The record is a 304-nucleotide sequence from Hevea brasiliensis, which matches "Plant signal recognition particle RNA" in Rfam. The family's RNA type in Rfam is non-coding RNA gene. Pairs were carried over by alignment from the consensus structure, which is taken from published work. The organism belongs to Hevea, within Eukaryota. Gene Ontology terms of the family: signal recognition particle, endoplasmic reticulum targeting and SRP-dependent cotranslational protein targeting to membrane, signal sequence recognition.
RNA sequence: GUUGGGCCCUGCAGCGUGGGCCUGUAACCCAAGCGGGGACAUUAAUGUGAUGGAACGUCGAUCUUGUCCAAGUGGCUGGAUUUGGACUGGUUAAAUUCUGGCUUGCCCUCUCCAAGUUCGGAGUCGAACCAUGGGUUCUAGGGCGAAGGCUUGGGUCUCCUGGUUCUUAGAGCAGAGGGGAAUGCGUGAGGCUGGCUUUACAGAGCAGCGACUACCUCCCUCUCUUGGCAGUGGAAGGAUAACAAGCCGGUGCCACCCGAAUCCCCAUGGUCAUAUGGGCUGGUCCAACUGGACCAUCACUUUU
Number, nucleotide and partner (000 for none) at each position: 001g040002u039003u038004g023005g022006g021007c020008c019009c018010u000011g000012c000013a000014g000015c000016g000017u000018g009019g008020g007021c006022c005023u004024g000025u000026a000027a000028c037029c036030c035031a000032a000033g000034c000035g030036g029037g028038g003039a002040c001041a000042u000043u000044a303045a302046u000047g300048u299049g298050a297051u296052g295053g294054a000055a000056c291057g290058u288059c000060g286061a284062u283063c282064u000065u000066g000067u000068c278069c277070a276071a000072g274073u273074g272075g271076c270077u269078g264079g263080a262081u261082u260083u259084g258085g257086a000087c000088u255089g254090g253091u000092u252093a251094a000095a000096u000097u000098c250099u249100g248101g247102c246103u245104u244105g243106c000107c238108c237109u000110c000111u235112c234113c233114a232115a000116g229117u228118u227119c000120g225121g224122a223123g222124u000125c000126g166127a165128a164129c163130c162131a161132u000133g159134g158135g157136u000137u155138c154139u153140a152141g000142g151143g150144c149145g000146a000147a000148g000149g144150c143151u142152u140153g139154g138155g137156u000157c135158u134159c133160c000161u131162g130163g129164u128165u127166c126167u172168u000169a000170g000171a000172g167173c000174a000175g218176a217177g216178g215179g000180g000181a000182a000183u000184g000185c210186g209187u208188g000189a000190g000191g000192c203193u202194g201195g000196c000197u000198u000199u000200a000201c194202a193203g192204a000205g000206c000207a000208g187209c186210g185211a000212c000213u000214a000215c178216c177217u176218c175219c000220c000221u000222c123223u122224c121225u120226u000227g118228g117229c116230a000231g000232u114233g113234g112235a111236a000237g108238g107239a000240u000241a000242a000243c105244a104245a103246g102247c101248c100249g099250g098251u093252g092253c090254c089255a088256c000257c085258c084259g083260a082261a081262u080263c079264c078265c000266c000267a000268u000269g077270g076271u075272c074273a073274u072275a000276u070277g069278g068279g000280c000281u000282g063283g062284u061285c000286c060287a000288a058289c000290u057291g056292g000293a000294c053295c052296a051297u050298c049299a048300c047301u000302u045303u044304u000